[Rfam]
The family of this 85-nucleotide RNA sequence from Malus domestica is "MIR1511 microRNA precursor family". The family has 2 seed sequences and 3 matches in Rfam 15.1. The organism belongs to Malus, within Eukaryota. Its family is annotated with RISC complex and miRNA-mediated post-transcriptional gene silencing in the Gene Ontology.
Nucleotides: 085
Stems, first nucleotide, its partner, number of pairs: 002084013016070003020066008029057003034053002037050002
Number, partner (000 for none) and nucleotide at each position: 001000a002084u003083u004082g005081u006080g007079g008078u009077a010076u011075c012074a013073g014072g015000a016070c017069u018068a019000u020066g021065u022064u023063a024062u025061g026060u027059g028000a029057a030056u031055g032000u033000u034053g035052u036000u037050a038049c039000a040000c041000a042000a043000u044000a045000u046000u047000g048000u049038g050037u051000u052035a053034c054000u055031c056030a057029u058000c059027u060026g061025u062024a063023u064022a065021a066020c067000c068018u069017a070016g071000c072014u073013c074012u075011g076010a077009u078008a079007c080006c081005a082004u083003g084002a085000a